This 81-nucleotide sequence from Caenorhabditis bovis belongs to the Rfam family "bZIP non canonical Hac1/Xbp1 intron". A reference for the family is Iracane et al. (2018), "Identification of an Exceptionally Long Intron in the HAC1 Gene of Candida parapsilosis", mSphere. From the family's description: bZIP intron RNA is a non-canonical intron that was first reported in HAC1 gene in yeast and XBP1 gene in Metazoa. NCBI's taxonomy places the organism under Eukaryota, Bilateria, Nematoda, Chromadorea, Caenorhabditis.
[Rfam]
RNA sequence: GUACGUCACCGAUGAGACCCUUGAAUCAGCAGCAUUCAUUAAUGCACCCCAGCAGAGGGUCCAGGCUCAUCAACGACGUGC
Numbered sequence: 001g002u003a004c005g006u007c008a009c010c011g012a013u014g015a016g017a018c019c020c021u022u023g024a025a026u027c028a029g030c031a032g033c034a035u036u037c038a039u040u041a042a043u044g045c046a047c048c049c050c051a052g053c054a055g056a057g058g059g060u061c062c063a064g065g066c067u068c069a070u071c072a073a074c075g076a077c078g079u080g081c
Stems, first nucleotide, its partner, number of pairs: 001081007011071004022038005046060004